[Rfam]
RNA sequence: CAAACCGGGUGACAACGAGAAAGAGCACGCUAGUACAAGACCAUAACAGCCGGUAUGGACUGUGGACCGGCGUGCUCUCUCUCGUUGUCAACCAACC
Numbered sequence: 001c002a003a004a005c006c007g008g009g010u011g012a013c014a015a016c017g018a019g020a021a022a023g024a025g026c027a028c029g030c031u032a033g034u035a036c037a038a039g040a041c042c043a044u045a046a047c048a049g050c051c052g053g054u055a056u057g058g059a060c061u062g063u064g065g066a067c068c069g070g071c072g073u074g075c076u077c078u079c080u081c082u083c084g085u086u087g088u089c090a091a092c093c094a095a096c097c
Stems, first nucleotide, its partner, number of pairs: 010090005016084002020080001023077001025075007033067002
RNA: MIR535 microRNA precursor family